[Rfam]
RNA sequence: GAAUUAUUGUUUAACGCUUGUCGCUGACGAGCCUUACGGAAG
Numbered sequence: 001g002a003a004u005u006a007u008u009g010u011u012u013a014a015c016g017c018u019u020g021u022c023g024c025u026g027a028c029g030a031g032c033c034u035u036a037c038g039g040a041a042g
Stems, first nucleotide, its partner, number of pairs: 016032007
Shown here is a 42-nucleotide RNA sequence from Duffyella gerundensis, a member of the family "nuoG RNA". A search with the family's covariance model found it, with a score of 42 bits. The family's RNA type in Rfam is cis-regulatory element. The base pairs follow the family's consensus structure, which is taken from published work.